[Rfam]
RNA sequence: GACCUAGAGCCACUCGCAAGAGAAGGUAUGGUAACCAAAAUCUAUCAGGAAAUAAAAGCUCAUCGUCAGAGCCUAUUUCCUGAUAGUCACGUUCCGAAAGGUUCGUGGGUGGCAUUUAUGCCAUC
Numbered sequence: 001g002a003c004c005u006a007g008a009g010c011c012a013c014u015c016g017c018a019a020g021a022g023a024a025g026g027u028a029u030g031g032u033a034a035c036c037a038a039a040a041u042c043u044a045u046c047a048g049g050a051a052a053u054a055a056a057a058g059c060u061c062a063u064c065g066u067c068a069g070a071g072c073c074u075a076u077u078u079c080c081u082g083a084u085a086g087u088c089a090c091g092u093u094c095c096g097a098a099a100g101g102u103u104c105g106u107g108g109g110u111g112g113c114a115u116u117u118a119u120g121c122c123a124u125c
Stems, first nucleotide, its partner, number of pairs: 002032003010025001013022003042086011058072004088107004094101002108125006
RNA: LOOT RNA